Small nucleolar RNA SNORA28: a 129-nucleotide sequence from Ornithorhynchus anatinus. From the family's description: ACA28 is a member of the H/ACA class of snoRNA that guide the sites of modification of uridines to pseudouridines. Its family is annotated with nucleolus and RNA processing in the Gene Ontology. Rfam's curators put it in the seed alignment. Rfam classes the family as an H/ACA-box small nucleolar RNA. The source organism's lineage runs through Eukaryota, Deuterostomia, Craniata, Sarcopterygii and Ornithorhynchus.
RNA sequence: AAGUAACACUCUGUGGCAGACACCGUUGUCUGACUCAAUUUUGAGCUUGCUAUAAUAAAAAAAAAAAAGCCUAACCUAUUCCAGUGGUCUCUUUUAAAUGAGACCAUCUGUUAUAUAGACUGUGACAGU
Numbered sequence: 001a002a003g004u005a006a007c008a009c010u011c012u013g014u015g016g017c018a019g020a021c022a023c024c025g026u027u028g029u030c031u032g033a034c035u036c037a038a039u040u041u042u043g044a045g046c047u048u049g050c051u052a053u054a055a056u057a058a059a060a061a062a063a064a065a066a067a068a069g070c071c072u073a074a075c076c077u078a079u080u081c082c083a084g085u086g087g088u089c090u091c092u093u094u095u096a097a098a099u100g101a102g103a104c105c106a107u108c109u110g111u112u113a114u115a116u117a118g119a120c121u122g123u124g125a126c127a128g129u
Stems, first nucleotide, its partner, number of pairs: 009045003012037002015034001017032006068121002071118003077115003082110003090103004